[Rfam]
RNA sequence: AUAUUCGUAAGAAAGAUAACUCAUAUAGUAUUGACGAUAAGGGUCAAAAGUUUCUACCGAGAUGCCGUAAAUAUCUUGACUAUGAGUAUGGUGCUUUUUUGG
Numbered sequence: 001a002u003a004u005u006c007g008u009a010a011g012a013a014a015g016a017u018a019a020c021u022c023a024u025a026u027a028g029u030a031u032u033g034a035c036g037a038u039a040a041g042g043g044u045c046a047a048a049a050g051u052u053u054c055u056a057c058c059g060a061g062a063u064g065c066c067g068u069a070a071a072u073a074u075c076u077u078g079a080c081u082a083u084g085a086g087u088a089u090g091g092u093g094c095u096u097u098u099u100u101g102g
Base pairs, nucleotide, nucleotide: 019087020086021085022084023083024082025081029049031047032046033045034044035043058078059077060076061075062074063073064072
Background: The family of this 102-nucleotide sequence from Clostridium sartagoforme is "Purine riboswitch aptamer". About the family: Riboswitches are metabolite binding domains within certain messenger RNAs that serve as precision sensors for their corresponding targets. A search with the family's covariance model found it, with a score of 81 bits.